A member of the RNA family "Manganese Mn2+ riboswitch aptamer (yybP-ykoY)" from Crenobacter luteus, 197 nucleotides long. This RNA was originally discovered in E. coli during a large scale screen and was named SraF. The family was later found to exist upstream of related families of protein genes in many bacteria, including the the yybP and ykoK genes in B. subtilis. The specific functions of these proteins are unknown, but this structured RNA element may be involved in their genetic regulation as a riboswitch. The base pairs follow the family's consensus structure.
RNA sequence: CGCGCUGUCUUGGGGGAGUAGCCGCCGCGCUUGAUUGACGCGGGCCCGCCGUCAACAGACUUGGCCAGCCGUCGCUGCGACGGCAUCCACGGCCAUGGCGCGGGCAACCUAUACGGUCUGGCAAGACUCAUGACUCUUCACCCUGUAGCGGGCCGCGCGGGGUGGACGAGUCAUGAACGUCGCGCGGCCCCUGGAAA
Dot-bracket structure: .........................(((...........))).(((((.(((((.......(((((........................)))))))))))))))....(.(.................................................................................).).